[Rfam]
RNA sequence: UUGCCCAUUUUGGCACUAGCACAUUUUUGCUUUGUUUCUCGUAGUUUGAGCAAACAUGUGUGGUGCUAAUAUGGGACG
Numbered sequence: 001u002u003g004c005c006c007a008u009u010u011u012g013g014c015a016c017u018a019g020c021a022c023a024u025u026u027u028u029g030c031u032u033u034g035u036u037u038c039u040c041g042u043a044g045u046u047u048g049a050g051c052a053a054a055c056a057u058g059u060g061u062g063g064u065g066c067u068a069a070u071a072u073g074g075g076a077c078g
Stems, first nucleotide, its partner, number of pairs: 004075005010069008019061006027053006
mir-96 microRNA precursor family: a 78-nucleotide sequence from Liparis tanakae. A reference for the family is Houbaviy et al. (2003), "Embryonic stem cell-specific MicroRNAs", Dev Cell. The base pairs follow the family's consensus structure, which was predicted with RNAalifold. The match comes from Rfam's covariance-model search (75 bits). The source organism's lineage runs through Eukaryota, Euteleostomi, Euacanthomorphacea, Perciformes and Liparis.